[Rfam]
RNA: MIR480 microRNA precursor family
Organism: Populus tomentosa
RNA sequence: UAAUUUUUUUGGGGUAGAUCGUCAUCUAAAUAUACCAGACUCAUAGUUGACCGUUUAGAAUCUCCUGUUAUCGCAAGCCCAUCAACUGCAUCAAUAAAAAUUUUGAUUAUUAUUUUUUAAUUAUCUUUAACAAUCAU
Number, nucleotide and partner (000 for none) at each position: 001u000002a000003a000004u000005u000006u133007u132008u130009u129010u000011g000012g126013g000014g124015u123016a000017g000018a000019u119020c000021g000022u000023c000024a113025u112026c000027u109028a108029a107030a000031u105032a000033u000034a000035c000036c000037a000038g000039a000040c000041u000042c000043a000044u000045a000046g000047u000048u000049g000050a000051c000052c000053g000054u000055u000056u000057a000058g000059a000060a000061u000062c000063u000064c000065c000066u000067g000068u000069u000070a000071u000072c000073g000074c000075a000076a000077g000078c000079c000080c000081a000082u000083c000084a000085a000086c000087u000088g000089c000090a000091u000092c000093a000094a000095u000096a000097a000098a000099a000100a000101u000102u000103u000104u000105g031106a000107u029108u028109a027110u000111u000112a025113u024114u000115u000116u000117u000118u000119a019120a000121u000122u000123a015124u014125c000126u012127u000128u000129a009130a008131c000132a007133a006134u000135c000136a000137u000